RNA sequence: UAUGCUAUGAUGAGAUGAAGCACCAUAGGGUGUUAUAGGGCAGUGGAAGAGAGUCUAAAAAUUCUUCUCCGUGAGCCUAUUUAAUUAACGACUUCUCCUUCCACUGAGCAUU
Numbered sequence: 001u002a003u004g005c006u007a008u009g010a011u012g013a014g015a016u017g018a019a020g021c022a023c024c025a026u027a028g029g030g031u032g033u034u035a036u037a038g039g040g041c042a043g044u045g046g047a048a049g050a051g052a053g054u055c056u057a058a059a060a061a062u063u064c065u066u067c068u069c070c071g072u073g074a075g076c077c078u079a080u081u082u083a084a085u086u087a088a089c090g091a092c093u094u095c096u097c098c099u100u101c102c103a104c105u106g107a108g109c110a111u112u
Stems, first nucleotide, its partner, number of pairs: 002111004
Notes:
The family of this 112-nucleotide RNA from Anisodus acutangulus is "Small nucleolar RNA Z152/R70/R12/". Its family is annotated with RNA processing and nucleolus in the Gene Ontology. Rfam 15.1 lists 604 matches to the family in 220 species. Rfam classes the family as a C/D-box small nucleolar RNA. Lineage of the source: Eukaryota > Streptophytina > Pentapetalae > Hyoscyameae > Anisodus.